A member of the RNA family "Small nucleolar RNA SNORD89" from Scyliorhinus torazame, 114 nucleotides long. Rfam 15.1 lists 642 matches to the family in 573 species. snoRNA HBII-289 belongs to the family of C/D snoRNAs. It is the human orthologue of the mouse MBII-289 and has no identified RNA target. A reference for the family is Huttenhofer et al. (2001), "RNomics: an experimental approach that identifies 201 candidates for novel, small, non-messenger RNAs in mouse", EMBO J. It scores 78 bits against the family's covariance model. Rfam classes the family as a C/D-box small nucleolar RNA.
RNA sequence: CUGGAGGAAUGAUGACAGGAAAAGGCCGAAUUGCAGUGUUGCUGCCAACAGUUUGUUCUCCGUGCACAGCACAAUGACAAAUCUCCUUGAAGCGACAAUUAGUCUGACCUCUUG
Numbered sequence: 001c002u003g004g005a006g007g008a009a010u011g012a013u014g015a016c017a018g019g020a021a022a023a024g025g026c027c028g029a030a031u032u033g034c035a036g037u038g039u040u041g042c043u044g045c046c047a048a049c050a051g052u053u054u055g056u057u058c059u060c061c062g063u064g065c066a067c068a069g070c071a072c073a074a075u076g077a078c079a080a081a082u083c084u085c086c087u088u089g090a091a092g093c094g095a096c097a098a099u100u101a102g103u104c105u106g107a108c109c110u111c112u113u114g
Stems, first nucleotide, its partner, number of pairs: 001114001003112005014104003025034002035100003042094001043092001046089003051072002054068003058064001076083001